[Rfam]
Shown here is a 105-nucleotide sequence from Gossypium anomalum, a member of the family "mir-399 microRNA precursor family". About the family: mir-399 was identified in both Arabidopsis thaliana and Oryza sativa computationally and was later experimentally verified. mir-399 is thought to target mRNAs coding for a phosphatase transporter. The mature sequence is excised from the 3' arm of the hairpin. Rfam 15.1 lists 2,396 matches to the family in 221 species. For this family Rfam cites "Computational Identification of Plant MicroRNAs and Their Targets, Including a Stress-Induced miRNA" (Jones-Rhoades and Bartel, Mol Cell, 2004). Its family is annotated with RISC complex and miRNA-mediated post-transcriptional gene silencing in the Gene Ontology. The source organism's lineage runs through Eukaryota, Gunneridae, Malvales, Malvaceae and Gossypium.
RNA sequence: GGCUGCAUUACAGGGCAAAAUCUCCUCUGGCAGCCAGCCAUUGCCACUUCACCUAUGAAUUCUAGUGUGCUCUCUGCCAAUGGAGAUUUGCCCCGCAAUUCCACU
Numbered sequence: 001g002g003c004u005g006c007a008u009u010a011c012a013g014g015g016c017a018a019a020a021u022c023u024c025c026u027c028u029g030g031c032a033g034c035c036a037g038c039c040a041u042u043g044c045c046a047c048u049u050c051a052c053c054u055a056u057g058a059a060u061u062c063u064a065g066u067g068u069g070c071u072c073u074c075u076g077c078c079a080a081u082g083g084a085g086a087u088u089u090g091c092c093c094c095g096c097a098a099u100u101c102c103a104c105u
Stems, first nucleotide, its partner, number of pairs: 005101001007099003011095001013093007022085004028079006036071001